Overview
The family of this 352-nucleotide RNA sequence from Propionispora sp. 2/2-37 is "Bacterial RNase P class A". A search with the family's covariance model found it, with a score of 301 bits. Rfam links the family to the GO terms dimeric ribonuclease P complex, tRNA processing and ribonuclease P activity. By type it is a ribozyme.
[Rfam]
RNA sequence: UGAGUCGGAAAGAUGAUCGCAAAUACCCUUGCGUAUUUGAGGAAAGUCCGAGCUCCAUAGGGCAGGGUGCUGGAUAACGUCCAGCGAGGGUGACCUCAGGGAAAGUGCCACAGAAAUGUAGACCGCCUGGAUAGCAGGCAAGGAUGGAACGGUGCGGUAAGAGCGCACCAGCAAUCAGGUGACUGAUUGGCUAGGUAAACCCCACCUGGAGCAAGACCGAAUAGGGAAGGGAUGAAGCUGCCCGCUGAGCCUUCCGGGUUGCGUCGCUUGAAUCGUCAGGUAACUGACGGUCUAGAUAAAUGAUCAUCGCCGCUUUUGCGGAACAGAACUCGGCUUAUUGAUGGCUCAUAAU
Number, nucleotide and partner (000 for none) at each position: 001u348002g347003a346004g345005u344006c343007g342008g000009a000010a339011a338012g308013a307014u306015g305016a304017u303018c302019g000020c039021a038022a037023a036024u035025a034026c033027c000028c000029u000030u000031g000032c000033g026034u025035a024036u023037u022038u021039g020040a000041g000042g000043a000044a336045a335046g334047u000048c333049c332050g331051a330052g329053c211054u210055c209056c208057a000058u000059a000060g243061g242062g241063c240064a000065g207066g206067g205068u204069g203070c084071u083072g082073g081074a080075u000076a000077a000078c000079g000080u074081c073082c072083a071084g070085c099086g097087a096088g095089g094090g000091u000092g000093a000094c089095c088096u087097c086098a000099g085100g202101g201102a000103a000104a000105g200106u199107g196108c195109c194110a000111c000112a000113g000114a000115a000116a000117u000118g000119u000120a000121g000122a000123c143124c142125g139126c138127c137128u136129g135130g000131a000132u000133a000134g000135c129136a128137g127138g126139c125140a000141a000142g124143g123144a000145u000146g000147g000148a000149a000150c000151g169152g168153u167154g166155c165156g164157g000158u000159a000160a000161g000162a000163g000164c156165g155166c154167a153168c152169c151170a000171g191172c189173a188174a187175u186176c185177a184178g183179g000180u000181g000182a000183c178184u177185g176186a175187u174188u173189g172190g000191c171192u000193a000194g109195g108196u107197a000198a000199a106200c105201c101202c100203c069204a068205c067206c066207u065208g056209g055210a054211g053212c000213a000214a000215g265216a264217c263218c261219g000220a000221a000222u000223a000224g000225g255226g254227a253228a252229g251230g250231g000232a000233u000234g000235a000236a246237g245238c244239u000240g063241c062242c061243c060244g238245c237246u236247g000248a000249g000250c230251c229252u228253u227254c226255c225256g000257g000258g000259u000260u000261g218262c000263g217264u216265c215266g000267c000268u000269u000270g000271a000272a291273u290274c289275g288276u287277c286278a285279g284280g000281u000282a000283a000284c279285u278286g277287a276288c275289g274290g273291u272292c000293u000294a000295g000296a000297u000298a000299a000300a000301u000302g018303a017304u016305c015306a014307u013308c012309g000310c000311c000312g000313c000314u000315u000316u000317u000318g000319c000320g000321g000322a000323a000324c000325a000326g000327a000328a000329c052330u051331c050332g049333g048334c046335u045336u044337a000338u011339u010340g000341a000342u007343g006344g005345c004346u003347c002348a001349u000350a000351a000352u000
Overview:
The base pairs follow the family's consensus structure, which is taken from published work. NCBI's taxonomy places the organism under Bacteria, Bacillati, Negativicutes, Selenomonadales, Propionispora.